[Rfam]
RNA sequence: GGGGGUGACUUGGAUUCGACGCUGAUUACGAACCCUUAGGUGCAUGUCGAGAAUGUGAUGAUUCUCGUUAAUCCCUCAUCACACAGUUAUAGUUGCAAACGACGAUAACUACGCUCUAGCAGCUUAAGCCUGCUAGCGCUGCCCUCUAAGGUGUCUAUAACUCAGAGUUUCGGCAGUGUCAUAUGAGAUAGAAUCGCCCCGCGUCUUCGCCUUAAGCCAACGGGUUAAACACUAAAAAGGCUCGCCCAUAACAGCCUGACUCUCGGCUCGUGACGGGUUAAUUUAAUAGAGAUGUCUAUGCAUGUAGAGCUUGAGGCAGAGGAUUGACGGACGCGGGUUCGAAACCCGCCACCUCCACCA
Numbered sequence: 001g002g003g004g005g006u007g008a009c010u011u012g013g014a015u016u017c018g019a020c021g022c023u024g025a026u027u028a029c030g031a032a033c034c035c036u037u038a039g040g041u042g043c044a045u046g047u048c049g050a051g052a053a054u055g056u057g058a059u060g061a062u063u064c065u066c067g068u069u070a071a072u073c074c075c076u077c078a079u080c081a082c083a084c085a086g087u088u089a090u091a092g093u094u095g096c097a098a099a100c101g102a103c104g105a106u107a108a109c110u111a112c113g114c115u116c117u118a119g120c121a122g123c124u125u126a127a128g129c130c131u132g133c134u135a136g137c138g139c140u141g142c143c144c145u146c147u148a149a150g151g152u153g154u155c156u157a158u159a160a161c162u163c164a165g166a167g168u169u170u171c172g173g174c175a176g177u178g179u180c181a182u183a184u185g186a187g188a189u190a191g192a193a194u195c196g197c198c199c200c201g202c203g204u205c206u207u208c209g210c211c212u213u214a215a216g217c218c219a220a221c222g223g224g225u226u227a228a229a230c231a232c233u234a235a236a237a238a239g240g241c242u243c244g245c246c247c248a249u250a251a252c253a254g255c256c257u258g259a260c261u262c263u264c265g266g267c268u269c270g271u272g273a274c275g276g277g278u279u280a281a282u283u284u285a286a287u288a289g290a291g292a293u294g295u296c297u298a299u300g301c302a303u304g305u306a307g308a309g310c311u312u313g314a315g316g317c318a319g320a321g322g323a324u325u326g327a328c329g330g331a332c333g334c335g336g337g338u339u340c341g342a343a344a345c346c347c348g349c350c351a352c353c354u355c356c357a358c359c360a
Base pairs, nucleotide, nucleotide: 001356002355003354004353005352006351007350020329021328023326024325025324026323027322034316035315036314037313038312039311040310041309043304044303045302046301047300048067049066050065051064052063054083055082056081057080058079059078060077116136117135118134119133120132121131122130137178138177139176140175141174142173144167145166146165147164149162150161152159154192155191156190157189158188196226198224199223200222201221209242211240212239213238244278245277246276247275249273251271252270254267255266256265258296259295260294262291263290264289333349334348335347336346337345
Notes
Rfam assigns this 360-nucleotide RNA from Marinobacterium sp. LSUCC0821 to the family "transfer-messenger RNA". About the family: Bacterial tmRNA, also known as 10Sa RNA or SsrA, is named for its dual tRNA and mRNA-like properties. Its role is to liberate the mRNA from a stalled ribosome. To accomplish this part of the tmRNA is used as a reading frame that ends in a translation stop signal. The broken mRNA is replaced in the ribosome by the tmRNA and translation of the tmRNA leads to addition of a proteolysis tag to the incomplete protein enabling recognition by a protease. Recently a number of permuted tmRNA genes have been found encoded in two parts. tmRNAs have been identified in eubacteria and some chloroplasts but are absent from archaeal and eukaryote nuclear genomes. The base pairs follow the family's consensus structure, which is taken from published work. Lineage of the source: Bacteria > Pseudomonadota > Gammaproteobacteria > Oceanospirillaceae > Marinobacterium. The match comes from Rfam's covariance-model search (201 bits). A reference for the family is Williams and Bartel (1996), "Phylogenetic analysis of tmRNA secondary structure", RNA. Clan: tRNA clan. Gene Ontology term of the family: RNA catabolic process.